RNA: MIR6234 microRNA precursor family
RNA sequence: CUCUUUUUCAUAUGCAAGUGUGUUCCUCUAUUUGACGCUAAAGGUGGAUGCUCUAGUUGAAACACUUCACAAAUGUCGUUGUUACAUUUGGUAGGAUUCUUACCUUUAGCAUCAAGAGAUGAACACACUCACCCACCAAAAAGGAC
Numbered sequence: 001c002u003c004u005u006u007u008u009c010a011u012a013u014g015c016a017a018g019u020g021u022g023u024u025c026c027u028c029u030a031u032u033u034g035a036c037g038c039u040a041a042a043g044g045u046g047g048a049u050g051c052u053c054u055a056g057u058u059g060a061a062a063c064a065c066u067u068c069a070c071a072a073a074u075g076u077c078g079u080u081g082u083u084a085c086a087u088u089u090g091g092u093a094g095g096a097u098u099c100u101u102a103c104c105u106u107u108a109g110c111a112u113c114a115a116g117a118g119a120u121g122a123a124c125a126c127a128c129u130c131a132c133c134c135a136c137c138a139a140a141a142a143g144g145a146c
Stems, first nucleotide, its partner, number of pairs: 002145006014132001017129009027119003031116005037110009046099004051094001054091001056089001058086002061083004065078001068075002